[Rfam]
RNA: Plant small nucleolar RNA R71
Organism: Hibiscus trionum
RNA sequence: AAACCAUGAUUUGUGCACUUCCUCAAUAAUUCCUUGAAUCGAUCCCAACACUCAUACAUGGAUUCGUUAUCAGCUUGACGAAAAGAAGCUAUAUCAUUUCUCAACUGAGUGU
Number, nucleotide and partner (000 for none) at each position: 001a112002a000003a110004c109005c107006a106007u000008g000009a000010u000011u000012u000013g000014u000015g000016c000017a000018c000019u000020u000021c000022c000023u000024c000025a000026a000027u000028a000029a000030u000031u000032c000033c000034u000035u000036g000037a000038a000039u000040c000041g000042a000043u000044c000045c000046c000047a000048a000049c000050a000051c000052u000053c000054a000055u000056a000057c000058a000059u000060g071061g000062a000063u000064u000065c000066g000067u000068u000069a000070u000071c060072a000073g000074c000075u000076u000077g000078a000079c000080g000081a000082a000083a000084a000085g000086a000087a000088g000089c000090u000091a000092u000093a000094u000095c000096a000097u000098u000099u000100c000101u000102c000103a000104a000105c000106u006107g005108a000109g004110u003111g000112u001